[Rfam]
RNA sequence: UCUAACUUAAGCAACGUAAGCCCAACCUACUCUUACGUCCUUGCGACCCUAAAAUCGCGCCAGUGUGAAUAAGCAUCUGCAAAAACAA
Numbered sequence: 001u002c003u004a005a006c007u008u009a010a011g012c013a014a015c016g017u018a019a020g021c022c023c024a025a026c027c028u029a030c031u032c033u034u035a036c037g038u039c040c041u042u043g044c045g046a047c048c049c050u051a052a053a054a055u056c057g058c059g060c061c062a063g064u065g066u067g068a069a070u071a072a073g074c075a076u077c078u079g080c081a082a083a084a085a086c087a088a
Stems, first nucleotide, its partner, number of pairs: 036067002040063002042059005